[Rfam]
RNA sequence: UUGCCCAGUGAUUAUAAAAAGACGCGUUAUUGUGAGGGUUAAUACUAGAACCAGUUGAGCUCUUUUUUCUUUUCUUUUUUUACCCCCUCCCCCCACCACUCCCUCUCUCCUAAACCACCCCCACUUACAUUUUCAUCUCUCCCAACUGGAUGCUAGUAUCCUUUGAGCAAACAAAGAUUAUGAGGGCAU
Numbered sequence: 001u002u003g004c005c006c007a008g009u010g011a012u013u014a015u016a017a018a019a020a021g022a023c024g025c026g027u028u029a030u031u032g033u034g035a036g037g038g039u040u041a042a043u044a045c046u047a048g049a050a051c052c053a054g055u056u057g058a059g060c061u062c063u064u065u066u067u068u069c070u071u072u073u074c075u076u077u078u079u080u081u082a083c084c085c086c087c088u089c090c091c092c093c094c095a096c097c098a099c100u101c102c103c104u105c106u107c108u109c110c111u112a113a114a115c116c117a118c119c120c121c122c123a124c125u126u127a128c129a130u131u132u133u134c135a136u137c138u139c140u141c142c143c144a145a146c147u148g149g150a151u152g153c154u155a156g157u158a159u160c161c162u163u164u165g166a167g168c169a170a171a172c173a174a175a176g177a178u179u180a181u182g183a184g185g186g187c188a189u
Base pairs, nucleotide, nucleotide: 002188003187004186005185006184035063036062037061038060039059040058
RNA: Small nucleolar RNA SNORD97
Organism: Erpetoichthys calabaricus